[Rfam]
RNA sequence: UUCUUCCUGUUCAAGCAUUCUGCUAUAACUGCACUUCUUGGAUUUGUUCUAGGUCUUGCAGUGAUGCUAGCAGAGUAACUACAGGAAGUAGAAUAUGGACACUUUUUUUUUGGGAUGCUGAUGAACCUCUUUCUGAAUGUUCAAUAUCCUUUGUCCCAAAGAUUGAGUGCUACAGAU
Numbered sequence: 001u002u003c004u005u006c007c008u009g010u011u012c013a014a015g016c017a018u019u020c021u022g023c024u025a026u027a028a029c030u031g032c033a034c035u036u037c038u039u040g041g042a043u044u045u046g047u048u049c050u051a052g053g054u055c056u057u058g059c060a061g062u063g064a065u066g067c068u069a070g071c072a073g074a075g076u077a078a079c080u081a082c083a084g085g086a087a088g089u090a091g092a093a094u095a096u097g098g099a100c101a102c103u104u105u106u107u108u109u110u111u112g113g114g115a116u117g118c119u120g121a122u123g124a125a126c127c128u129c130u131u132u133c134u135g136a137a138u139g140u141u142c143a144a145u146a147u148c149c150u151u152u153g154u155c156c157c158a159a160a161g162a163u164u165g166a167g168u169g170c171u172a173c174a175g176a177u
Stems, first nucleotide, its partner, number of pairs: 018075002021072005028065001030063002037053006098171001100169005120145001122143004
RNA: Small nucleolar RNA SNORA81